[Rfam]
RNA sequence: UCCUUAUAUAACGAUAUUAUACGCAAGACAGUAUAGUCGCUCCCUGUAAGGAAUAAAAUGCGAGAGGUGGUGUUGUAUUAGUGAGAUAACAUCAAGGUUGAAAUACCAAUGCCUCUCAGGAUAACCGUAAGUCCUUAAGAAUUAUUAUUCUUUAAAAUUAAUCUUUUAGAAUUAUGAAAGUCAAAUUUGGUACUUUUAUAUAUUUUAAAAGUUACGGUACU
Numbered sequence: 001u002c003c004u005u006a007u008a009u010a011a012c013g014a015u016a017u018u019a020u021a022c023g024c025a026a027g028a029c030a031g032u033a034u035a036g037u038c039g040c041u042c043c044c045u046g047u048a049a050g051g052a053a054u055a056a057a058a059u060g061c062g063a064g065a066g067g068u069g070g071u072g073u074u075g076u077a078u079u080a081g082u083g084a085g086a087u088a089a090c091a092u093c094a095a096g097g098u099u100g101a102a103a104u105a106c107c108a109a110u111g112c113c114u115c116u117c118a119g120g121a122u123a124a125c126c127g128u129a130a131g132u133c134c135u136u137a138a139g140a141a142u143u144a145u146u147a148u149u150c151u152u153u154a155a156a157a158u159u160a161a162u163c164u165u166u167u168a169g170a171a172u173u174a175u176g177a178a179a180g181u182c183a184a185a186u187u188u189g190g191u192a193c194u195u196u197u198a199u200a201u202a203u204u205u206u207a208a209a210a211g212u213u214a215c216g217g218u219a220c221u
Stems, first nucleotide, its partner, number of pairs: 001052008010041001012039004018035005023029001062117007073109002075106005088099002118135005124218006130158001137152005163211010173200009